[Rfam]
RNA sequence: GGGUAUAAACGCGCUCGUAAUAAGCGGAUCGGACCCGGGGGCGGUACCCGGCGGCUCCACCAUCAAUCCCGUCGUUGGGGAUCAUGGGGCCGAAACAGGAUCGACGAACGUCCAAAGGGGUUUGCUUUACCUCGGUGAGCUACCACCGUUAUCGGUGCAAAAGUACAGUUGCCAACGACAACCGUGCUCCGGUCGCUCUGGCUGCGUAA
Numbered sequence: 001g002g003g004u005a006u007a008a009a010c011g012c013g014c015u016c017g018u019a020a021u022a023a024g025c026g027g028a029u030c031g032g033a034c035c036c037g038g039g040g041g042c043g044g045u046a047c048c049c050g051g052c053g054g055c056u057c058c059a060c061c062a063u064c065a066a067u068c069c070c071g072u073c074g075u076u077g078g079g080g081a082u083c084a085u086g087g088g089g090c091c092g093a094a095a096c097a098g099g100a101u102c103g104a105c106g107a108a109c110g111u112c113c114a115a116a117g118g119g120g121u122u123u124g125c126u127u128u129a130c131c132u133c134g135g136u137g138a139g140c141u142a143c144c145a146c147c148g149u150u151a152u153c154g155g156u157g158c159a160a161a162a163g164u165a166c167a168g169u170u171g172c173c174a175a176c177g178a179c180a181a182c183c184g185u186g187c188u189c190c191g192g193u194c195g196c197u198c199u200g201g202c203u204g205c206g207u208a209a
Stems, first nucleotide, its partner, number of pairs: 001132005013121004025110002029107003035051005052092007133148004
This 209-nucleotide RNA sequence from Phaeovulum veldkampii belongs to the Rfam family "permuted transfer-messenger RNA". The literature on the family includes a 1996 paper in RNA by Williams and Bartel, "Phylogenetic analysis of tmRNA secondary structure". Pairs were carried over by alignment from the consensus structure, which is taken from published work. By type it is a non-coding RNA gene.